[Rfam]
RNA sequence: GAGGGCCGGCCCCUCGGAGUCUGCUUGCAGGAGCGGGCUUCAAACCGCCUCAAGCUGCAGGGGUAAAGAACCCUUGUGGUGAGCGUUGAGGAAAAGGCAAAGUAUCACCCUGUCAGGU
Number, nucleotide and partner (000 for none) at each position: 001g015002a014003g013004g012005g011006c000007c000008g000009g000010c000011c005012c004013c003014u002015c001016g041017g040018a039019g038020u037021c036022u000023g034024c033025u032026u031027g000028c000029a000030g000031g026032a025033g024034c023035g000036g021037g020038c019039u018040u017041c016042a000043a000044a000045c000046c117047g000048c091049c090050u089051c088052a087053a086054g080055c079056u000057g077058c076059a075060g000061g073062g072063g071064u070065a000066a000067a000068g000069a000070a064071c063072c062073c061074u000075u059076g058077u057078g000079g055080u054081g000082a000083g000084c000085g000086u053087u052088g051089a050090g049091g048092a000093a000094a000095a000096g114097g113098c112099a111100a000101a000102g000103u000104a000105u000106c000107a000108c000109c000110c000111u099112g098113u097114c096115a000116g000117g046118u000

Description
Shown here is a 118-nucleotide sequence from Pelobacter propionicus, a member of the family "Group II catalytic intron D1-D4-2". Rfam's curators put it in the seed alignment. Group II introns are found in rRNA, tRNA and mRNA of organelles in fungi, plants and protists, and also in mRNA in bacteria. On this family, see Bonen and Vogel, Trends Genet 2001: "The ins and outs of group II introns".